[Rfam]
This 84-nucleotide sequence from Chlorocebus sabaeus belongs to the Rfam family "mir-3661 microRNA precursor family".
RNA sequence: CUUGCAGAGGCUCUUGACCCGGGACUUGGAUAGCUACUUUCACUGGUUCAGCUGCUUGAUCCACUGGUCCAGCUCCUUGGAGAA
Number, nucleotide and partner (000 for none) at each position: 001c000002u083003u082004g000005c080006a000007g078008a077009g076010g075011c000012u000013c072014u071015u000016g069017a068018c067019c066020c000021g064022g062023g061024a060025c000026u059027u058028g057029g056030a000031u054032a053033g052034c051035u050036a000037c000038u000039u000040u000041c046042a000043c000044u000045g000046g041047u000048u000049c000050a035051g034052c033053u032054g031055c000056u029057u028058g027059a026060u024061c023062c022063a000064c021065u000066g019067g018068u017069c016070c000071a014072g013073c000074u000075c010076c009077u008078u007079g000080g005081a000082g003083a002084a000

Gene Ontology terms of the family: miRNA-mediated post-transcriptional gene silencing and RISC complex. It scores 80 bits against the family's covariance model.